[Rfam]
RNA sequence: UUUAAUACGAUGAAGGUUCUGAGUACAUGGCACUCGAUUUUCUAGAGAGAGGUUUCCUAGGCUGUAAGAAAUCUUAAAUUAGAACCAUGGAAAGCUAAACCUGAGUACGGCUAAUCCCCGUCGGUUUCAUACCGUUAUCAUGCUUAAGUGAUGGAUAGUAAUGUCCAUAAUUAGGGUGGUACCGCGAAUAAUCUCGUCCCUGCA
Number, nucleotide and partner (000 for none) at each position: 001u000002u000003u000004a000005a000006u000007a106008c105009g000010a000011u000012g000013a000014a000015g101016g100017u099018u098019c000020u000021g000022a000023g000024u000025a000026c089027a088028u087029g086030g085031c000032a000033c000034u000035c000036g000037a000038u000039u078040u077041u076042c000043u000044a000045g000046a000047g000048a000049g000050a000051g073052g072053u071054u070055u069056c068057c000058u000059a000060g000061g000062c000063u000064g000065u000066a000067a000068g056069a055070a054071a053072u052073c051074u000075u000076a041077a040078a039079u000080u000081a000082g000083a000084a000085c030086c029087a028088u027089g026090g000091a000092a000093a000094g000095c000096u000097a000098a018099a017100c016101c015102u000103g000104a000105g008106u007107a000108c120109g119110g118111c000112u000113a000114a000115u000116c000117c000118c110119c109120g108121u000122c134123g133124g132125u000126u000127u000128c000129a000130u000131a000132c124133c123134g122135u000136u000137a000138u000139c000140a000141u000142g000143c000144u000145u000146a000147a000148g000149u000150g000151a168152u167153g166154g165155a164156u163157a162158g000159u000160a000161a000162u157163g156164u155165c154166c153167a152168u151169a000170a000171u000172u000173a201174g200175g199176g198177u000178g000179g000180u000181a000182c000183c000184g197185c196186g195187a194188a000189u000190a000191a000192u000193c000194u187195c186196g185197u184198c176199c175200c174201u173202g000203c000204a000
Record summary:
A member of the RNA family "T-box leader" from Ornithinibacillus hominis, 204 nucleotides long. Lineage of the source: Bacteria > Bacillati > Bacillota > Bacilli > Ornithinibacillus. It scores 106 bits against the family's covariance model. From the family's description: Uncharged tRNA acts as the effector for transcription antitermination of genes in the T-box leader family. The family's RNA type in Rfam is cis-regulatory leader.